RNA: ZMP/ZTP riboswitch aptamer (pfl RNA motif)
RNA sequence: GUUCCGCUGUGCGACUGGCGGCUUAGCGUGGAGCACCACGAGGAAGCACAGCGAUAUCUGCCGACCGCCUGGGCCCGACGC
Numbered sequence: 001g002u003u004c005c006g007c008u009g010u011g012c013g014a015c016u017g018g019c020g021g022c023u024u025a026g027c028g029u030g031g032a033g034c035a036c037c038a039c040g041a042g043g044a045a046g047c048a049c050a051g052c053g054a055u056a057u058c059u060g061c062c063g064a065c066c067g068c069c070u071g072g073g074c075c076c077g078a079c080g081c
Stems, first nucleotide, its partner, number of pairs: 005053008015043002017069005028039004060074003